A member of the RNA family "Small Cajal body-specific RNA 7" from Muntiacus reevesi, 310 nucleotides long.

[Rfam]
RNA sequence: UGGAAAUGAUGAAAUAGAGAUAAUUGGGUGUUAAACAUAUGAUUAGAAAAUUUUAAUAUCUAAGUUAAGUAAUCUUAAGUUUAAUAUUUUUUAACUGUCUGAUAGUGUGUGUGUGCAUGUGAGUGUGUGCUUGUGGAGGCUAUGAAGAGGGGCCGCUGACUGGUGAUGCUGAUACUGGAGUGCAUCUGAGGCUGUUGUAGAAGCACAUGGGUUGUUGAUUACAACACUGCCGAUGAUUAUAGCCCGGGAGAAAAAAAAAAAAAAGAAAUAACAUGGACCACAAUAUAGGCAGGAACGGGGAAUGCCCUGG
Numbered sequence: 001u002g003g004a005a006a007u008g009a010u011g012a013a014a015u016a017g018a019g020a021u022a023a024u025u026g027g028g029u030g031u032u033a034a035a036c037a038u039a040u041g042a043u044u045a046g047a048a049a050a051u052u053u054u055a056a057u058a059u060c061u062a063a064g065u066u067a068a069g070u071a072a073u074c075u076u077a078a079g080u081u082u083a084a085u086a087u088u089u090u091u092u093a094a095c096u097g098u099c100u101g102a103u104a105g106u107g108u109g110u111g112u113g114u115g116c117a118u119g120u121g122a123g124u125g126u127g128u129g130c131u132u133g134u135g136g137a138g139g140c141u142a143u144g145a146a147g148a149g150g151g152g153c154c155g156c157u158g159a160c161u162g163g164u165g166a167u168g169c170u171g172a173u174a175c176u177g178g179a180g181u182g183c184a185u186c187u188g189a190g191g192c193u194g195u196u197g198u199a200g201a202a203g204c205a206c207a208u209g210g211g212u213u214g215u216u217g218a219u220u221a222c223a224a225c226a227c228u229g230c231c232g233a234u235g236a237u238u239a240u241a242g243c244c245c246g247g248g249a250g251a252a253a254a255a256a257a258a259a260a261a262a263a264a265g266a267a268a269u270a271a272c273a274u275g276g277a278c279c280a281c282a283a284u285a286u287a288g289g290c291a292g293g294a295a296c297g298g299g300g301a302a303u304g305c306c307c308u309g310g
Stems, first nucleotide, its partner, number of pairs: 193226008202216004206211001

Description: Rfam classes the family as a small Cajal body RNA.